Rfam assigns this 89-nucleotide RNA from Bombyx mori to the family "mir-282 microRNA precursor family". The source organism's lineage runs through Eukaryota, Pterygota, Eumetabola, Aparaglossata and Bombyx. It scores 77 bits against the family's covariance model. The family's consensus secondary structure was predicted with RNAalifold. The literature on the family includes a 2009 paper in BMC Genomics by Li et al., "Direct sequencing and expression analysis of a large number of miRNAs in Aedes aegypti and a multi-species survey of novel mosquito miRNAs".

[Rfam]
RNA sequence: UCGGGACUUUGACCUAGCCUCUCCUUGGCUUUGUCUGUUUCGUUAGUAGCUCAGACAUAGCCUGAUAGAGGUUACGUUUUGUCCCUUUC
Numbered sequence: 001u002c003g004g005g006a007c008u009u010u011g012a013c014c015u016a017g018c019c020u021c022u023c024c025u026u027g028g029c030u031u032u033g034u035c036u037g038u039u040u041c042g043u044u045a046g047u048a049g050c051u052c053a054g055a056c057a058u059a060g061c062c063u064g065a066u067a068g069a070g071g072u073u074a075c076g077u078u079u080u081g082u083c084c085c086u087u088u089c
Stems, first nucleotide, its partner, number of pairs: 012077002015074006027062004032057005
Dot-bracket structure: ...........((.((((((......((((.(((((................))))).))))......)))))).))............